[Rfam]
RNA: SAM-I/IV (S-adenosyl methionine) riboswitch aptamer
RNA sequence: CAUCAACAUCAAGAGAAAGAUUGGGUUCUUCUCCAACCUGCUAACUCAGGCAAGGUGGAAUAAAAGAUGUGGUUAACCAACAAUUAAAUGAGGUAAU
Numbered sequence: 001c002a003u004c005a006a007c008a009u010c011a012a013g014a015g016a017a018a019g020a021u022u023g024g025g026u027u028c029u030u031c032u033c034c035a036a037c038c039u040g041c042u043a044a045c046u047c048a049g050g051c052a053a054g055g056u057g058g059a060a061u062a063a064a065a066g067a068u069g070u071g072g073u074u075a076a077c078c079a080a081c082a083a084u085u086a087a088a089u090g091a092g093g094u095a096a097u
Stems, first nucleotide, its partner, number of pairs: 006070005015031001017030004032059003037055003040051003045092004072081003